A member of the RNA family "small nucleolar RNA snoR137" from Citrus unshiu, 138 nucleotides long.
The family's RNA type in Rfam is H/ACA-box small nucleolar RNA.
Lineage of the source: Eukaryota > Magnoliopsida > rosids > Sapindales > Citrus.
Pairs were carried over by alignment from the consensus structure, which was predicted with RNAalifold.
The family has 4 seed sequences and 808 matches in Rfam 15.1.
[Rfam]
RNA sequence: CUUUCUUUAUAAUGGUGUGGCUGACUUGAUAAUUUGGUCAUUCAUAAUGAGGAAGCAUAUAUAAAAAGAACUUGCCAGUUUUAAACAGCAUGAUGGUGAUUUCUAAUUACAUUGUGUUACCUGUCUGCUGGUAAAAUU
Numbered sequence: 001c002u003u004u005c006u007u008u009a010u011a012a013u014g015g016u017g018u019g020g021c022u023g024a025c026u027u028g029a030u031a032a033u034u035u036g037g038u039c040a041u042u043c044a045u046a047a048u049g050a051g052g053a054a055g056c057a058u059a060u061a062u063a064a065a066a067a068g069a070a071c072u073u074g075c076c077a078g079u080u081u082u083a084a085a086c087a088g089c090a091u092g093a094u095g096g097u098g099a100u101u102u103c104u105a106a107u108u109a110c111a112u113u114g115u116g117u118u119a120c121c122u123g124u125c126u127g128c129u130g131g132u133a134a135a136a137u138u
Base pairs, nucleotide, nucleotide: 003057005055006054007053008052016044017043023038025036074132075131076130077129078128079127087118088117089116091114092113093112094111095110